RNA sequence: AGUGCAGGGGUUAUGUAUCGGCGCCAUGCUCUAUUGGCGUGCAUUGGCUACCAAGCGUUCCCUGCUACAUUGAUCAUAAGGAAGAAUGGACUUUUGGGCUUUUCCCUCGUUAAUUGACUACUCAACAAUCUUUCUUCCUACAUUU
Numbered sequence: 001a002g003u004g005c006a007g008g009g010g011u012u013a014u015g016u017a018u019c020g021g022c023g024c025c026a027u028g029c030u031c032u033a034u035u036g037g038c039g040u041g042c043a044u045u046g047g048c049u050a051c052c053a054a055g056c057g058u059u060c061c062c063u064g065c066u067a068c069a070u071u072g073a074u075c076a077u078a079a080g081g082a083a084g085a086a087u088g089g090a091c092u093u094u095u096g097g098g099c100u101u102u103u104c105c106c107u108c109g110u111u112a113a114u115u116g117a118c119u120a121c122u123c124a125a126c127a128a129u130c131u132u133u134c135u136u137c138c139u140a141c142a143u144u145u
Base pairs, nucleotide, nucleotide: 004065005064006063007062008061009060010059013044014043015042016041017040018039079139080138081137082136083135084134085133086132088130089129094125095124096123
Background: The record is a 145-nucleotide RNA from Apostasia shenzhenica, which matches "small nucleolar RNA snoR135" in Rfam. The organism belongs to Apostasia, within Eukaryota. By type it is an H/ACA-box small nucleolar RNA. Its family is annotated with nucleolus and RNA processing in the Gene Ontology.